[Rfam]
RNA sequence: CCGACUGUACUUUACAGGAUCAUGUAUACAGUCAAUUUUCAGUAUCUUUGUUCACCGAACAUAGACACACCUACCAAGCUGGAAGAUGACAAACAGUGCGCUGUCCGUAAAGGGAGGUGCUUUUCGGGGAGGCUCUGUUUCCCCGGUUCGAUGAUCUUGCUUGCCAUCUGCGCCCUCUGCGCGCUAUUUCCUCUUUUUGAGGAAAGCGCAGGGUUUUUGAGUGCAGGCAUAGCGAGGACGGUCGCACAUUCUGACAGCUU
Number, nucleotide and partner (000 for none) at each position: 001c042002c000003g040004a000005c000006u035007g000008u000009a032010c031011u030012u000013u000014a000015c000016a027017g000018g025019a000020u000021c000022a000023u000024g000025u018026a000027u016028a000029c000030a011031g010032u009033c000034a000035a006036u000037u000038u000039u000040c003041a000042g001043u067044a000045u065046c064047u063048u000049u061050g060051u059052u000053c000054a000055c000056c000057g000058a000059a051060c050061a049062u000063a047064g046065a045066c000067a043068c000069a000070c000071c000072u000073a000074c000075c000076a000077a259078g258079c257080u256081g255082g000083a000084a000085g000086a000087u000088g000089a000090c000091a000092a000093a000094c000095a000096g247097u246098g245099c244100g243101c241102u240103g239104u238105c237106c236107g000108u000109a000110a158111a157112g156113g155114g000115a000116g000117g000118u000119g000120c000121u000122u000123u000124u000125c000126g000127g000128g000129g000130a000131g000132g000133c000134u000135c000136u000137g000138u000139u000140u000141c000142c000143c000144c000145g000146g000147u000148u000149c000150g000151a000152u000153g000154a000155u113156c112157u111158u110159g000160c000161u226162u000163g224164c000165c000166a000167u000168c000169u000170g000171c000172g000173c000174c000175c000176u000177c000178u000179g000180c000181g000182c000183g000184c000185u000186a000187u000188u000189u000190c000191c000192u000193c000194u000195u000196u000197u000198u000199g000200a000201g000202g000203a000204a000205a000206g000207c000208g000209c000210a000211g000212g000213g000214u000215u000216u000217u000218u000219g000220a000221g000222u000223g000224c163225a000226g161227g000228c000229a000230u000231a000232g000233c000234g000235a000236g106237g105238a104239c103240g102241g101242u000243c100244g099245c098246a097247c096248a000249u000250u000251c000252u000253g000254a000255c081256a080257g079258c078259u077260u000